[Rfam]
Nucleotides: 123
Stems, first nucleotide, its partner, number of pairs: 025112003029108002033104002037100004042095003
Number, partner (000 for none) and nucleotide at each position: 001000u002000u003000c004000u005000u006000a007000u008000u009000g010000g011000a012000u013000g014000a015000u016000g017000a018000c019000u020000g021000c022000c023000a024000c025112u026111c027110a028000c029108g030107u031000g032000u033104c034103a035000c036000g037100u038099u039098u040097u041000g042095a043094u044093u045000g046000a047000a048000u049000g050000u051000c052000a053000a054000c055000u056000c057000g058000a059000u060000g061000a062000a063000a064000g065000a066000u067000g068000a069000a070000a071000u072000g073000c074000a075000u076000u077000g078000a079000u080000a081000u082000u083000u084000u085000c086000a087000u088000u089000g090000a091000c092000c093044a094043a095042u096000c097040a098039g099038a100037a101000u102000a103034u104033g105000a106000c107030a108029c109000g110027u111026g112025a113000u114000a115000u116000c117000a118000g119000c120000a121000u122000a123000a